[Rfam]
RNA sequence: GUUCGUCUUCACGGGCAGGGUGCAAUUCCCGACCGGUGGUAUAGUCCACGAACUGUUCAAUGUUACACAUUGUUCAGCCGAGCUGGUGAGAUUCCAGCACCGACAGUUACAGUCUGAGUAAAGAAGAUAGGG
Numbered sequence: 001g002u003u004c005g006u007c008u009u010c011a012c013g014g015g016c017a018g019g020g021u022g023c024a025a026u027u028c029c030c031g032a033c034c035g036g037u038g039g040u041a042u043a044g045u046c047c048a049c050g051a052a053c054u055g056u057u058c059a060a061u062g063u064u065a066c067a068c069a070u071u072g073u074u075c076a077g078c079c080g081a082g083c084u085g086g087u088g089a090g091a092u093u094c095c096a097g098c099a100c101c102g103a104c105a106g107u108u109a110c111a112g113u114c115u116g117a118g119u120a121a122a123g124a125a126g127a128u129a130g131g132g
Stems, first nucleotide, its partner, number of pairs: 003130001005128006018030003032113002034102002036049004044100002053077002082098005104116003